[Rfam]
RNA sequence: UCCCCAACAAUAUCCUGAUGCUGAGUGAGCGGCACAUAGAGACUCCAGCAUCAGUGAUUUUGUUGAAGA
Numbered sequence: 001u002c003c004c005c006a007a008c009a010a011u012a013u014c015c016u017g018a019u020g021c022u023g024a025g026u027g028a029g030c031g032g033c034a035c036a037u038a039g040a041g042a043c044u045c046c047a048g049c050a051u052c053a054g055u056g057a058u059u060u061u062g063u064u065g066a067a068g069a
Base pairs, nucleotide, nucleotide: 006064007063008062009061010060012058013057014056015054016053017052018051019050020049021048022047023046